[Rfam]
Shown here is a 370-nucleotide RNA from Desulfobulbus oligotrophicus, a member of the family "Bacterial RNase P class A". The match comes from Rfam's covariance-model search (307 bits). NCBI's taxonomy places the organism under Bacteria, Pseudomonadati, Thermodesulfobacteriota, Desulfobulbia, Desulfobulbus.
RNA sequence: AGGGGUGAAUGCAUGGUCGCUCCGGUUCAAUCCGGAGAGGAAAGUCCGAACACCGCAGGGCAUGGUGGUUCGUAACGCGAACUCCGGGUAACCGGGGGAAAGUGCCACAGAAAAUACACCGCCGAUGGAAUGCGUACGUGUUCACAGGUAAGGUUGAAAUGGCGAGGUAAGAGCUCACCGCUCCCGUGGCAACACGGGAGGCAGGGUAAACCCCACCAGGUGCAAGACCAAAUAGAGAGACGCUUGAGGGCGGCCCGUCCAAAGUCUCCGGGUAGGUUGCACGAGGUGCCGGGCGACCGGCAUCCCAGAUAAAUGAUCAUGGUUCGCUCUCGGGCGAAAACAGAAUUCGGCUUACAGUUCACCCCUUUUU
Numbered sequence: 001a002g003g004g005g006u007g008a009a010u011g012c013a014u015g016g017u018c019g020c021u022c023c024g025g026u027u028c029a030a031u032c033c034g035g036a037g038a039g040g041a042a043a044g045u046c047c048g049a050a051c052a053c054c055g056c057a058g059g060g061c062a063u064g065g066u067g068g069u070u071c072g073u074a075a076c077g078c079g080a081a082c083u084c085c086g087g088g089u090a091a092c093c094g095g096g097g098g099a100a101a102g103u104g105c106c107a108c109a110g111a112a113a114a115u116a117c118a119c120c121g122c123c124g125a126u127g128g129a130a131u132g133c134g135u136a137c138g139u140g141u142u143c144a145c146a147g148g149u150a151a152g153g154u155u156g157a158a159a160u161g162g163c164g165a166g167g168u169a170a171g172a173g174c175u176c177a178c179c180g181c182u183c184c185c186g187u188g189g190c191a192a193c194a195c196g197g198g199a200g201g202c203a204g205g206g207u208a209a210a211c212c213c214c215a216c217c218a219g220g221u222g223c224a225a226g227a228c229c230a231a232a233u234a235g236a237g238a239g240a241c242g243c244u245u246g247a248g249g250g251c252g253g254c255c256c257g258u259c260c261a262a263a264g265u266c267u268c269c270g271g272g273u274a275g276g277u278u279g280c281a282c283g284a285g286g287u288g289c290c291g292g293g294c295g296a297c298c299g300g301c302a303u304c305c306c307a308g309a310u311a312a313a314u315g316a317u318c319a320u321g322g323u324u325c326g327c328u329c330u331c332g333g334g335c336g337a338a339a340a341c342a343g344a345a346u347u348c349g350g351c352u353u354a355c356a357g358u359u360c361a362c363c364c365c366u367u368u369u370u
Stems, first nucleotide, its partner, number of pairs: 001366010011355001012321007020037006042353003046350005051222004058256004063218005068082005083096005097213002102211002104207003119153002121149003126144004161179002164176003180202001181200008226278004237268005248260004285304008